[Rfam]
The record is a 117-nucleotide RNA sequence, which matches "DUF3800-I RNA" in Rfam.

RNA sequence: UUUGUAUGCAGACAGGCGACUGUGCUGUAUAAUCACGGGGUCUGAAUUAACGUUUAAGUGGCGUGUUCCGCCAUCAGCCGUGAUGCCAUCGAAAAUUAUUCGAUGGUUUUUUCUUUU
Numbered sequence: 001u002u003u004g005u006a007u008g009c010a011g012a013c014a015g016g017c018g019a020c021u022g023u024g025c026u027g028u029a030u031a032a033u034c035a036c037g038g039g040g041u042c043u044g045a046a047u048u049a050a051c052g053u054u055u056a057a058g059u060g061g062c063g064u065g066u067u068c069c070g071c072c073a074u075c076a077g078c079c080g081u082g083a084u085g086c087c088a089u090c091g092a093a094a095a096u097u098a099u100u101c102g103a104u105g106g107u108u109u110u111u112u113c114u115u116u117u
Stems, first nucleotide, its partner, number of pairs: 007029005012023003032084006042077003045054003058074006085107009
Rfam's curators write: Actinobacteria, Firmicutes, Fusobacteria, Proteobacteria (1 example), Tenericutes (2 examples). It is one of the family's seed sequences. The family's consensus secondary structure is taken from published work.